[Rfam]
RNA: Ribosomal protein L10 leader
Nucleotides: 157
Stems, first nucleotide, its partner, number of pairs: 028082006034063002118142010
Number, partner (000 for none) and nucleotide at each position: 001000u002000a003000c004000a005000a006000c007000g008000u009000g010000u011000u012000a013000u014000a015000a016000c017000u018000g019000c020000c021000g022000a023000a024000g025000a026000c027000a028082g029081u030080a031079g032078g033077u034063g035062c036000g037000g038000u039000u040000g041000a042000a043000u044000g045000a046000a047000a048000a049000u050000a051000u052000u053000u054000c055000a056000u057000u058000c059000a060000u061000a062035g063034c064000g065000u066000a067000a068000g069000u070000u071000g072000a073000g074000a075000a076000c077033g078032c079031c080030u081029a082028c083000c084000g085000a086000g087000g088000g089000a090000a091000a092000u093000a094000a095000g096000a097000a098000a099000u100000c101000u102000a103000a104000g105000a106000u107000g108000a109000c110000u111000u112000a113000u114000a115000a116000u117000a118142a119141c120140c121139c122138u123137u124136a125135c126134u127133g128000u129000c130000u131000a132000a133127c134126a135125g136124u137123a138122a139121g140120g141119g142118u143000u144000u145000u146000u147000u148000u149000g150000g151000u152000u153000a154000a155000a156000a157000g